RNA sequence: UAGUCCCUGACCCCCGGUGGCCCAGAGGGGAGGUGGUGGGGGUUGGGGGCAGGGAGGGGGCUGCUGGCUAACAUUUACCAGGACCUUUGAA
Numbered sequence: 001u002a003g004u005c006c007c008u009g010a011c012c013c014c015c016g017g018u019g020g021c022c023c024a025g026a027g028g029g030g031a032g033g034u035g036g037u038g039g040g041g042g043u044u045g046g047g048g049g050c051a052g053g054g055a056g057g058g059g060g061c062u063g064c065u066g067g068c069u070a071a072c073a074u075u076u077a078c079c080a081g082g083a084c085c086u087u088u089g090a091a
Base pairs, nucleotide, nucleotide: 003050004049005048006047007046011030012029013028014027

Shown here is a 91-nucleotide RNA sequence from Propithecus coquereli, a member of the family "GRIK4 3 prime UTR element".
Lineage of the source: Eukaryota > Deuterostomia > Sarcopterygii > Dipnotetrapodomorpha > Propithecus.
It scores 42 bits against the family's covariance model.
The literature on the family includes a 2008 paper in Proc Natl Acad Sci U S A by Pickard et al., "A common variant in the 3'UTR of the GRIK4 glutamate receptor gene affects transcript abundance and protects against bipolar disorder".